[Rfam]
RNA sequence: ACCUGCCCUGGGCUUUCUAGUCUCCGCUCUCUUGACCAGCUGAGCUGGAGGAGAGCUGAGGCUAGAAAGCCUAGGGCAGCU
Dot-bracket structure: (.((((((((((((((((((((((.((((((((..(((((...))))))))))))).)))))))))))))))))))))).)
Numbered sequence: 001a002c003c004u005g006c007c008c009u010g011g012g013c014u015u016u017c018u019a020g021u022c023u024c025c026g027c028u029c030u031c032u033u034g035a036c037c038a039g040c041u042g043a044g045c046u047g048g049a050g051g052a053g054a055g056c057u058g059a060g061g062c063u064a065g066a067a068a069g070c071c072u073a074g075g076g077c078a079g080c081u
Stems, first nucleotide, its partner, number of pairs: 001081001003079022026056008036048005
This 81-nucleotide sequence from Sapajus apella belongs to the Rfam family "mir-3160 microRNA precursor family". The organism belongs to Sapajus, within Eukaryota. Its family is annotated with miRNA-mediated post-transcriptional gene silencing and RISC complex in the Gene Ontology.